The record is a 256-nucleotide sequence from Planococcus halotolerans, which matches "BsrG" in Rfam. A reference for the family is Jahn et al. (2012), "BsrG/SR4 from Bacillus subtilis--the first temperature-dependent type I toxin-antitoxin system", Mol Microbiol.
RNA sequence: CAAUCGAAUAGGGAACUCAAGGGUGGUUGGCCAUCCCCGGAAGAAAGGGGGGUGGUGCAUAUGACGGUUUAUGAAGCAUUGAUGUUUGCAGUAACUUUCGCAAGCCUGAUGCUUAUGAUUUCGUCUAAAGACCAAAAAAAAUAACCCGCCCUUGAGUUGGUAGCUCUGCGGGUUAUCCUUAUUAAGUAACCUAAUGGCUGAUCUCCCUUGUUGGGACCUGGCGAAUGCUUGCCGUUCGGUGUUGACGCACCGGGCG
Numbered sequence: 001c002a003a004u005c006g007a008a009u010a011g012g013g014a015a016c017u018c019a020a021g022g023g024u025g026g027u028u029g030g031c032c033a034u035c036c037c038c039g040g041a042a043g044a045a046a047g048g049g050g051g052g053u054g055g056u057g058c059a060u061a062u063g064a065c066g067g068u069u070u071a072u073g074a075a076g077c078a079u080u081g082a083u084g085u086u087u088g089c090a091g092u093a094a095c096u097u098u099c100g101c102a103a104g105c106c107u108g109a110u111g112c113u114u115a116u117g118a119u120u121u122c123g124u125c126u127a128a129a130g131a132c133c134a135a136a137a138a139a140a141a142u143a144a145c146c147c148g149c150c151c152u153u154g155a156g157u158u159g160g161u162a163g164c165u166c167u168g169c170g171g172g173u174u175a176u177c178c179u180u181a182u183u184a185a186g187u188a189a190c191c192u193a194a195u196g197g198c199u200g201a202u203c204u205c206c207c208u209u210g211u212u213g214g215g216a217c218c219u220g221g222c223g224a225a226u227g228c229u230u231g232c233c234g235u236u237c238g239g240u241g242u243u244g245a246c247g248c249a250c251c252g253g254g255c256g
Stems, first nucleotide, its partner, number of pairs: 001221001003219001009201001011199002016156008025146004031055003035050004063125005076089003099117002102114001166186002204216003233256010
Notes:
Rfam describes the family as follows. bsrE, bsrG and bsrH pair through intermolecular interactions with antisense sRNAs. They form type I toxin/antitoxin system that includes an mRNA encoding for a short, toxic peptide (bsrE, bsrG and bsrH) and an antitoxin that is comprised of an antisense RNA. bsrG encodes a 39-amino-acid toxin, and the 180 nucleotide antisense sRNA called SR4 acts as the antitoxin (they overlap by 123 nucleotides).